Notes: A member of the RNA family "TPP riboswitch aptamer (THI element)" from Breoghania sp. L-A4, 103 nucleotides long. The family's consensus secondary structure is taken from published work. It scores 70 bits against the family's covariance model.
Nucleotides: 103
Stems, first nucleotide, its partner, number of pairs: 006091005011053004017034005041046001059084003065078004
Number, partner (000 for none) and nucleotide at each position: 001000c002000u003000c004000c005000a006091c007090u008089c009088a010087a011053c012052g013051g014050g015000g016000u017034g018033c019032c020031g021030g022000c023000g024000g025000a026000u027000c028000u029000g030021c031020c032019g033018g034017c035000u036000g037000a038000g039000a040000g041046g042000c043000u044000u045000g046041c047000c048000a049000a050014c051013c052012c053011g054000u055000c056000g057000a058000a059084c060083c061082u062000g063000a064000u065078c066077c067076g068075g069000a070000u071000c072000a073000u074000g075068c076067c077066g078065g079000c080000g081000g082061a083060g084059g085000g086000a087010u088009u089008g090007a091006g092000g093000c094000c095000u096000u097000g098000g099000u100000g101000u102000u103000u